[Rfam]
RNA sequence: GUGGGCUACGGAGACAUGUACCCCAUGACGGUGGGGGGCAAGAUCGUGGGCUCGCUGUGCGCCAUCGCUGGGGUCCUCACCAUCGCCCUGCCCGUUCCUGUCAUCGUGUCCAAC
Numbered sequence: 001g002u003g004g005g006c007u008a009c010g011g012a013g014a015c016a017u018g019u020a021c022c023c024c025a026u027g028a029c030g031g032u033g034g035g036g037g038g039c040a041a042g043a044u045c046g047u048g049g050g051c052u053c054g055c056u057g058u059g060c061g062c063c064a065u066c067g068c069u070g071g072g073g074u075c076c077u078c079a080c081c082a083u084c085g086c087c088c089u090g091c092c093c094g095u096u097c098c099u100g101u102c103a104u105c106g107u108g109u110c111c112a113a114c
Stems, first nucleotide, its partner, number of pairs: 001114002004111002007108005013102004018097001020095002037077002040074001049063003
Record summary: A member of the RNA family "Potassium channel RNA editing signal" from Jaculus jaculus, 114 nucleotides long. The base pairs follow the family's consensus structure, which is taken from published work. The family has 85 seed sequences and 14,095 matches in Rfam 15.1.